[Rfam]
RNA: skipping-rope RNA
RNA sequence: UUAUUUUGAGGUCGGAAAUGGUUCCCGACAUACUCUUUUGAGUACCUGAGAUGAUGGAUACACCGCCCAUCCAAAGUAG
Numbered sequence: 001u002u003a004u005u006u007u008g009a010g011g012u013c014g015g016a017a018a019u020g021g022u023u024c025c026c027g028a029c030a031u032a033c034u035c036u037u038u039u040g041a042g043u044a045c046c047u048g049a050g051a052u053g054a055u056g057g058a059u060a061c062a063c064c065g066c067c068c069a070u071c072c073a074a075a076g077u078a079g
Base pairs, nucleotide, nucleotide: 001079002078003077004076005075006074007073008072011029012028013027014026015025019065020064021063022062031048032043033042034041035040053071054070055069056068057067